[Rfam]
RNA: S15-Halobacteria ribosomal protein leader
RNA sequence: AUGGGAACGGCACGGCCACACAUCCGACAUCGGCGUGGGCUUCCACGGCUUGGGAGUGUGGUAGUGC
Numbered sequence: 001a002u003g004g005g006a007a008c009g010g011c012a013c014g015g016c017c018a019c020a021c022a023u024c025c026g027a028c029a030u031c032g033g034c035g036u037g038g039g040c041u042u043c044c045a046c047g048g049c050u051u052g053g054g055a056g057u058g059u060g061g062u063a064g065u066g067c
Stems, first nucleotide, its partner, number of pairs: 010067004015062007024054002032049001034047005